[Rfam]
RNA sequence: GCUCUGUGAUGAACCCCAUGCGUGUCAUCUGAGCCUGGCUUCCCUGUUAACCUUAGCCCAGGUAGUGUUCUACUUACCAGGGCUUUUGCAUGACCUAUCAGGGAAGCCGAGGGCAAAGGAUCAGUCCUUGCAUUCUGAGAGC
Numbered sequence: 001g002c003u004c005u006g007u008g009a010u011g012a013a014c015c016c017c018a019u020g021c022g023u024g025u026c027a028u029c030u031g032a033g034c035c036u037g038g039c040u041u042c043c044c045u046g047u048u049a050a051c052c053u054u055a056g057c058c059c060a061g062g063u064a065g066u067g068u069u070c071u072a073c074u075u076a077c078c079a080g081g082g083c084u085u086u087u088g089c090a091u092g093a094c095c096u097a098u099c100a101g102g103g104a105a106g107c108c109g110a111g112g113g114c115a116a117a118g119g120a121u122c123a124g125u126c127c128u129u130g131c132a133u134u135c136u137g138a139g140a141g142c
Stems, first nucleotide, its partner, number of pairs: 001142004042103005048097002